RNA: Molybdenum/Tungsten riboswitch aptamer (Moco RNA motif)
RNA sequence: CUGCCGGCUAUCUUCCGAGUUGCUGUUCCUAAAGCACUUCUUUUGUGCCAUGGAACGGUAUACCGGGGCAAUGAGCGGCCCAAAGGGUUUAAAAGGGAAACCUUUAAGCCUCCCUGAUGGAAAGGAAGCAAAGAAUUUUUUGU
Numbered sequence: 001c002u003g004c005c006g007g008c009u010a011u012c013u014u015c016c017g018a019g020u021u022g023c024u025g026u027u028c029c030u031a032a033a034g035c036a037c038u039u040c041u042u043u044u045g046u047g048c049c050a051u052g053g054a055a056c057g058g059u060a061u062a063c064c065g066g067g068g069c070a071a072u073g074a075g076c077g078g079c080c081c082a083a084a085g086g087g088u089u090u091a092a093a094a095g096g097g098a099a100a101c102c103u104u105u106a107a108g109c110c111u112c113c114c115u116g117a118u119g120g121a122a123a124g125g126a127a128g129c130a131a132a133g134a135a136u137u138u139u140u141u142g143u
Stems, first nucleotide, its partner, number of pairs: 003137001012128005019063002021060009034048003066081004085111006092105005112120002